RNA sequence: GCUGCUUAAAGGCAACCCCGCUGAAAGGCGGGCAACGCAAAGUCACGGGUCUAACGGGCGCAUGCCCUAUGACAGCCGGACUGCCGAU
Numbered sequence: 001g002c003u004g005c006u007u008a009a010a011g012g013c014a015a016c017c018c019c020g021c022u023g024a025a026a027g028g029c030g031g032g033c034a035a036c037g038c039a040a041a042g043u044c045a046c047g048g049g050u051c052u053a054a055c056g057g058g059c060g061c062a063u064g065c066c067c068u069a070u071g072a073c074a075g076c077c078g079g080a081c082u083g084c085c086g087a088u
Base pairs, nucleotide, nucleotide: 012038013037017032018031019030020029021028022027041082042081043080044079046078047077048076049073050072051071056067057066058065059064

This 88-nucleotide RNA from Luminiphilus syltensis belongs to the Rfam family "c-di-GMP-I riboswitch aptamer". The base pairs follow the family's consensus structure, which is taken from published work. The literature on the family includes a 2008 paper in Science by Sudarsan et al., "Riboswitches in Eubacteria Sense the Second Messenger Cyclic Di-GMP". GEMM was predicted in a large-scale screen for bacterial structured RNA regulatory elements.